[Rfam]
Nucleotides: 465
Base pairs, nucleotide, nucleotide: 004195005194006193007192008191009190010189011188012187014185017184019181020180021179022178053102054101055100056099057098064096065095066094067093068092069091070090071089080174081173082172083171085169086167087166088165201376202375203374204373205372206371207370241327242326243325244324245323246322247321250320251319252318262295263294264293265292266291268290269289270288273283274282275281297309298308299307300306389457390456391455394453395452396451397450398449399448416445417444418443419442420441423438424437425436426435
Number, partner (000 for none) and nucleotide at each position: 001000c002000g003000u004195g005194c006193c007192g008191g009190g010189g011188u012187g013000g014185g015000c016000a017184g018000g019181u020180c021179c022178u023000g024000c025000g026000g027000c028000a029000g030000a031000c032000u033000a034000a035000c036000c037000c038000u039000a040000a041000u042000g043000g044000c045000g046000g047000u048000g049000g050000c051000g052000c053102c054101c055100c056099u057098c058000a059000u060000g061000c062000c063000c064096g065095c066094c067093c068092g069091c070090u071089g072000u073000u074000u075000u076000a077000c078000u079000c080174g081173c082172u083171g084000a085169c086167u087166u088165u089071c090070a091069g092068u093067g094066g095065g096064c097000a098057g099056a100055g101054g102053g103000a104000g105000c106000g107000g108000c109000c110000c111000a112000a113000u114000g115000g116000g117000g118000g119000u120000g121000g122000g123000g124000g125000g126000a127000u128000a129000a130000g131000g132000g133000g134000g135000a136000g137000g138000g139000c140000g141000g142000a143000g144000g145000g146000a147000a148000a149000g150000a151000a152000g153000u154000a155000c156000g157000g158000c159000c160000u161000c162000a163000a164000a165088a166087a167086a168000a169085g170000c171083c172082a173081g174080c175000g176000a177000g178022a179021g180020g181019g182000a183000u184017c185014c186000a187012c188011a189010c190009c191008c192007c193006g194005g195004c196000c197000c198000a199000c200000g201376c202375u203374g204373g205372g206371g207370u208000c209000c210000a211000u212000g213000u214000c215000c216000u217000u218000c219000c220000u221000c222000c223000g224000c225000a226000a227000a228000c229000g230000g231000g232000a233000a234000u235000g236000c237000u238000c239000c240000c241327g242326c243325c244324g245323u246322c247321g248000c249000c250320c251319c252318g253000c254000g255000u256000g257000g258000a259000g260000g261000c262295c263294g264293c265292g266291g267000u268290c269289g270288g271000c272000a273283g274282g275281c276000u277000c278000a279000g280000c281275g282274c283273c284000a285000u286000u287000a288270c289269c290268g291266c292265c293264g294263c295262g296000a297309a298308g299307a300306g301000c302000u303000u304000g305000u306300c307299u308298c309297u310000g311000u312000c313000a314000g315000c316000c317000u318252c319251g320250g321247c322246g323245g324244c325243g326242g327241c328000u329000g330000g331000g332000a333000c334000c335000g336000g337000a338000g339000g340000u341000c342000c343000g344000g345000u346000c347000c348000g349000c350000c351000c352000a353000c354000c355000c356000u357000g358000g359000g360000c361000g362000c363000c364000c365000g366000g367000a368000g369000g370207a371206c372205c373204c374203c375202a376201g377000c378000a379000a380000a381000a382000c383000a384000a385000a386000a387000c388000g389457g390456g391455c392000g393000c394453g395452g396451c397450g398449c399448c400000g401000c402000c403000g404000g405000g406000c407000g408000c409000u410000g411000a412000g413000c414000a415000g416445c417444c418443g419442c420441g421000g422000c423438u424437c425436c426435c427000u428000c429000a430000g431000a432000c433000g434000u435426g436425g437424g438423a439000u440000g441420c442419g443418c444417g445416g446000c447000c448399g449398g450397c451396g452395c453394c454000g455391g456390c457389c458000c459000g460000a461000c462000a463000c464000c465000c
Shown here is a 465-nucleotide sequence from Rhipidura dahli, a member of the family "Vertebrate telomerase RNA". It is annotated as a non-coding RNA gene. The organism belongs to Rhipidura, within Eukaryota. Its family is annotated with telomerase catalytic core complex, telomerase activity and telomere maintenance via telomerase in the Gene Ontology. The base pairs follow the family's consensus structure, which is taken from published work. Telomerase is a ribonucleoprotein reverse transcriptase that synthesises telomeric DNA. Telomerase RNAs differ greatly in sequence and structure between vertebrates, ciliates and yeasts, but they share a 5' pseudoknot structure close to the template sequence. Vertebrate telomerase RNAs have a 3' H/ACA snoRNA-like domain. Its Rfam clan is "Telomerase clan". It scores 140 bits against the family's covariance model.